[Rfam]
RNA sequence: AGGAGGGUGAUGAAAGAAAUCAGACGGAUUCCCACUGAUUAAUUUCUAUUGUGAUUACCUAACCAGCUACUUCUGACUCCU
Numbered sequence: 001a002g003g004a005g006g007g008u009g010a011u012g013a014a015a016g017a018a019a020u021c022a023g024a025c026g027g028a029u030u031c032c033c034a035c036u037g038a039u040u041a042a043u044u045u046c047u048a049u050u051g052u053g054a055u056u057a058c059c060u061a062a063c064c065a066g067c068u069a070c071u072u073c074u075g076a077c078u079c080c081u
Stems, first nucleotide, its partner, number of pairs: 001081005
Description
The family of this 81-nucleotide RNA from Turnera subulata is "Small nucleolar RNA R12". The family's RNA type in Rfam is C/D-box small nucleolar RNA. The literature on the family includes a 2003 paper in Nucleic Acids Res by Chen et al., "The high diversity of snoRNAs in plants: identification and comparative study of 120 snoRNA genes from Oryza sativa".